RNA sequence: CUCCGCCCGUGCAUCGUGGCCUCUGUCCGAACCGGCCCUGGCGUACUUCCCCAACGCCAGGUCCGCGACCUCGGACAGGGACCUCGAUGCAGGGGCAGCCACCC
Dot-bracket structure: .........(((((((.((.((((((((((.((((.((((((((.........)))))))).))).)...)))))))))).)).))))))).............
mraW RNA: a 104-nucleotide sequence from Mycolicibacterium madagascariense. It is annotated as a cis-regulatory element. The base pairs follow the family's consensus structure, which is taken from published work.